[Rfam]
A member of the RNA family "Insertion sequence IS1222 ribosomal frameshifting element" from Thelohanellus kitauei, 108 nucleotides long. The match comes from Rfam's covariance-model search (60 bits).
RNA sequence: GGGAAUUCAGGUGGCUCUCGGUCGAAAGUAAUGACGACAGACCAGAAGCGGGAAGCCGUUGAGUUUAUGUGUGAUGCUGGUUCAAUGACCUCAUUGAACCAGCAUUUC
Number, nucleotide and partner (000 for none) at each position: 001g000002g000003g000004a000005a000006u000007u000008c000009a000010g000011g000012u000013g000014g000015c000016u000017c000018u000019c000020g000021g000022u000023c000024g000025a000026a000027a000028g000029u000030a000031a000032u000033g000034a000035c000036g108037a107038c000039a105040g000041a000042c102043c000044a000045g000046a000047a000048g059049c058050g057051g056052g000053a000054a000055g000056c051057c050058g049059u048060u000061g000062a000063g099064u098065u097066u096067a000068u000069g000070u000071g000072u000073g000074a000075u000076g000077c000078u000079g000080g000081u000082u000083c000084a000085a000086u000087g000088a000089c000090c000091u000092c000093a000094u000095u000096g066097a065098a064099c063100c000101a000102g042103c000104a000105u039106u000107u037108c036

Rfam describes the family as follows. This family represents the insertion sequence IS1222 ribosomal frameshifting element. The element stimulates frameshifting which is known to be required for transposition. On this family, see Mejlhede et al., J Bacteriol 2004: "-1 frameshifting at a CGA AAG hexanucleotide site is required for transposition of insertion sequence IS1222". The family has 5 seed sequences and 89 matches in Rfam 15.1. Its family is annotated with translational frameshifting in the Gene Ontology.